[Rfam]
RNA sequence: GUUUGUGAUGACUUACAUGGAAUCUCGUUCGGCUGAUGACUUGCUGUUGAGACUCUGAAAUCUGAUUUUC
Numbered sequence: 001g002u003u004u005g006u007g008a009u010g011a012c013u014u015a016c017a018u019g020g021a022a023u024c025u026c027g028u029u030c031g032g033c034u035g036a037u038g039a040c041u042u043g044c045u046g047u048u049g050a051g052a053c054u055c056u057g058a059a060a061u062c063u064g065a066u067u068u069u070c
Stems, first nucleotide, its partner, number of pairs: 023052005030046004

Rfam assigns this 70-nucleotide sequence to the family "Small nucleolar RNA SNORD30". The literature on the family includes a 1996 paper in Nature by Tycowski et al., "A mammalian gene with introns instead of exons generating stable RNA products". The family has 20 seed sequences and 367 matches in Rfam 15.1. The family's RNA type in Rfam is C/D-box small nucleolar RNA. Gene Ontology terms of the family: nucleolus and RNA processing.